Background:
Rfam assigns this 64-nucleotide RNA sequence from Rhinopithecus bieti to the family "U7 small nuclear RNA". Animal histone pre-mRNAs are spliced by a different mechanism than nuclear pre-mRNAs and self-splicing introns. This processing involves the U7 snRNP, which contains only one RNA species: U7. The 5' end of U7 RNA is thought to base-pair to a conserved spacer element downstream of the cleavage site in histone pre-mRNA. This family contains a number of annotated U7 pseudogenes. Pairs were carried over by alignment from the consensus structure, which was predicted with PFOLD.
RNA sequence: GAGUGUUACAGCUCAUUUAGAGUUUGUCUAGCAGGUUUUCUGGUCUUCACUAUAAAGCACCCCC
Number, nucleotide and partner (000 for none) at each position: 001g000002a000003g000004u000005g000006u000007u000008a000009c000010a000011g000012c000013u000014c000015a000016u000017u000018u000019a000020g000021a000022g000023u000024u000025u000026g000027u000028c000029u000030a000031g000032c000033a000034g061035g060036u059037u056038u055039u054040c000041u052042g051043g050044u049045c000046u000047u000048c000049a044050c043051u042052a041053u000054a039055a038056a037057g000058c000059a036060c035061c034062c000063c000064c000